[Rfam]
RNA sequence: GAUUCAUCCUAGGGGUGCUUUGCGAAGCUGAGAGAGACUUUGUCUCAACCCUUUUGACCUGAUCUGGAUCAUGCCAGCGGAGGGAAGCGGUGAAAAGCGGAG
Number, nucleotide and partner (000 for none) at each position: 001g000002a000003u000004u000005c000006a000007u089008c000009c087010u086011a052012g051013g050014g049015g000016u000017g028018c027019u026020u025021u000022g000023c000024g000025a020026a019027g018028c017029u000030g000031a000032g000033a000034g000035a045036g044037a043038c042039u000040u000041u000042g038043u037044c036045u035046c000047a000048a000049c014050c013051c012052u011053u000054u000055u000056g000057a000058c083059c082060u081061g000062a000063u000064c077065u076066g075067g074068a000069u000070c000071a000072u000073g000074c067075c066076a065077g064078c000079g000080g000081a060082g059083g058084g000085a000086a010087g009088c000089g007090g000091u000092g000093a000094a000095a000096a000097g000098c000099g000100g000101a000102g000
A member of the RNA family "TPP riboswitch aptamer (THI element)" from Bacillus subtilis, 102 nucleotides long. The source organism's lineage runs through Bacteria, Bacillati, Bacillota, Bacillaceae and Bacillus subtilis subsp. subtilis. The sequence is in the family's curated seed alignment.